A member of the RNA family "c-di-AMP riboswitch aptamer (ydaO/yuaA leader)" from Thermolongibacillus altinsuensis, 144 nucleotides long.

[Rfam]
RNA sequence: GCAUAGAGAUCGCUGAAUCCGUAAUGGAGCGGGGGAACCAAUUUUGUAACGUCAUGUUACUUGGGGUGAGUCCUUGAAAAAGGAGGGGCUACUCUCAUGGCCCUAACCCGACAGCUAACCUCGUAAGCGUUUUGGGAGGGAUGU
Numbered sequence: 001g002c003a004u005a006g007a008g009a010u011c012g013c014u015g016a017a018u019c020c021g022u023a024a025u026g027g028a029g030c031g032g033g034g035g036a037a038c039c040a041a042u043u044u045u046g047u048a049a050c051g052u053c054a055u056g057u058u059a060c061u062u063g064g065g066g067u068g069a070g071u072c073c074u075u076g077a078a079a080a081a082g083g084a085g086g087g088g089c090u091a092c093u094c095u096c097a098u099g100g101c102c103c104u105a106a107c108c109c110g111a112c113a114g115c116u117a118a119c120c121u122c123g124u125a126a127g128c129g130u131u132u133u134g135g136g137a138g139g140g141a142u143g144u
Stems, first nucleotide, its partner, number of pairs: 011129004018028003029124006039063002064109003072083004086103004
The source organism's lineage runs through Bacteria, Bacillati, Bacillota, Anoxybacillaceae and Thermolongibacillus. The match comes from Rfam's covariance-model search (103 bits).